[Rfam]
A member of the RNA family "Lysine riboswitch aptamer" from Shewanella intestini, 200 nucleotides long. Rfam's curators write: Riboswitches are metabolite binding domains within certain messenger RNAs that serve as precision sensors for their corresponding targets. A search with the family's covariance model found it, with a score of 115 bits.
RNA sequence: UCUUUUAGUAGAGGUGCAUUAAAUAUCAGUAGUGGUGGUUAGGGUGAUGCCUGUGAUCUGUCACGAAAGGAUUUAGUGCCGAAGUCGUGUGUUUUAUCUAAAACCACUGCUGGUGUUGUUACCGAAUAGGGACUGCACUGUCAUAGUAUUUUUUUGUCGGGAUGACAAAAUUAACUUUACUAUGGAGCGCUACUGAUAGG
Numbered sequence: 001u002c003u004u005u006u007a008g009u010a011g012a013g014g015u016g017c018a019u020u021a022a023a024u025a026u027c028a029g030u031a032g033u034g035g036u037g038g039u040u041a042g043g044g045u046g047a048u049g050c051c052u053g054u055g056a057u058c059u060g061u062c063a064c065g066a067a068a069g070g071a072u073u074u075a076g077u078g079c080c081g082a083a084g085u086c087g088u089g090u091g092u093u094u095u096a097u098c099u100a101a102a103a104c105c106a107c108u109g110c111u112g113g114u115g116u117u118g119u120u121a122c123c124g125a126a127u128a129g130g131g132a133c134u135g136c137a138c139u140g141u142c143a144u145a146g147u148a149u150u151u152u153u154u155u156g157u158c159g160g161g162a163u164g165a166c167a168a169a170a171u172u173a174a175c176u177u178u179a180c181u182a183u184g185g186a187g188c189g190c191u192a193c194u195g196a197u198a199g200g
Base pairs, nucleotide, nucleotide: 006195007194008193009192010191011190016079017078018077019076020075021074022073023072024071032064033063034062035061036060037059038058083111084110085109087107088106089105092102093101094100112139113138114137115136116135118133119132120131122129141185142184143183144182145181146180147179